MIR4371 microRNA precursor family: a 156-nucleotide RNA sequence from Glycine max. Pairs were carried over by alignment from the consensus structure, which was predicted with RNAalifold. Its family is annotated with miRNA-mediated post-transcriptional gene silencing and RISC complex in the Gene Ontology. Lineage of the source: Eukaryota > Tracheophyta > Magnoliopsida > Fabales > Glycine subgen. Soja. Rfam 15.1 lists 321 matches to the family in 4 species. It scores 130 bits against the family's covariance model. The family is grouped with related families in Rfam's "MIR4387 microRNA precursor clan".
[Rfam]
RNA sequence: CUAUUAAGUGAUGACGUGACAGACAGAGUGUCACGUCAUCACACCCAAUCAUUGACAUGUCACUAUCACAUCAUCACCUUCAAUGACGUGACGAUGACGUGUUAGUGAUUGGGUGUGAUGAUGUGACACUGUCUGUCAUCUCAUCACUCAACGGAA
Numbered sequence: 001c002u003a004u005u006a007a008g009u010g011a012u013g014a015c016g017u018g019a020c021a022g023a024c025a026g027a028g029u030g031u032c033a034c035g036u037c038a039u040c041a042c043a044c045c046c047a048a049u050c051a052u053u054g055a056c057a058u059g060u061c062a063c064u065a066u067c068a069c070a071u072c073a074u075c076a077c078c079u080u081c082a083a084u085g086a087c088g089u090g091a092c093g094a095u096g097a098c099g100u101g102u103u104a105g106u107g108a109u110u111g112g113g114u115g116u117g118a119u120g121a122u123g124u125g126a127c128a129c130u131g132u133c134u135g136u137c138a139u140c141u142c143a144u145c146a147c148u149c150a151a152c153g154g155a156a
Base pairs, nucleotide, nucleotide: 001154002153004151005150007148008147009146010145011144012143013142014141016139017138018137019136020135021134022133023132024131027130028129029128030127031126032125033124034123035122036121037120038119039118040117041116042115043114044113045112046111048109049108050107051106052105054103055102056101057100058099071086072085073084074083